The record is a 119-nucleotide RNA from Asparagus officinalis, which matches "MIR390 microRNA precursor family" in Rfam. Rfam 15.1 lists 649 matches to the family in 206 species. Taxonomically the source falls in Asparagus (Eukaryota, Streptophytina, Spermatophyta, Magnoliopsida). A reference for the family is Gustafson et al. (2005), "ASRP: the Arabidopsis Small RNA Project Database", Nucleic Acids Res. It scores 89 bits against the family's covariance model. Rfam links the family to the GO terms RISC complex and miRNA-mediated post-transcriptional gene silencing.

RNA sequence: UGAAAGAAUCCUUAAAGCUCAGGAGGGAUAGCGCCAUUCAUCAUGAUGAGCAAAAUACUGUAUGAUGUUCUUGUUCAAAUUUUUGGCGCUAUCUAUCCUGAGCAUUAUGGCUUCUUCCU
Numbered sequence: 001u002g003a004a005a006g007a008a009u010c011c012u013u014a015a016a017g018c019u020c021a022g023g024a025g026g027g028a029u030a031g032c033g034c035c036a037u038u039c040a041u042c043a044u045g046a047u048g049a050g051c052a053a054a055a056u057a058c059u060g061u062a063u064g065a066u067g068u069u070c071u072u073g074u075u076c077a078a079a080u081u082u083u084u085g086g087c088g089c090u091a092u093c094u095a096u097c098c099u100g101a102g103c104a105u106u107a108u109g110g111c112u113u114c115u116u117c118c119u
Stems, first nucleotide, its partner, number of pairs: 010110001017103008026094010